Rfam assigns this 77-nucleotide RNA from Alligator sinensis to the family "Mammalian CPEB3 ribozyme". The literature on the family includes a 2006 paper in Science by Salehi-Ashtiani et al., "A genomewide search for ribozymes reveals an HDV-like sequence in the human CPEB3 gene".
[Rfam]
RNA sequence: AGUUGCAAAUUCAAGGCCAAAGAAGAGGUGCUCAUGGCAUGGCCAUGUCAGAUUCCAUUGAAUCUGUGAAUUUUGCU
Dot-bracket structure: ..............((((..[[.[[[[(((.......)))))))....(((((((....)))))))....]]]].]]
Pairs were carried over by alignment from the consensus structure, which is taken from published work. Lineage of the source: Eukaryota > Gnathostomata > Euteleostomi > Crocodylia > Alligator.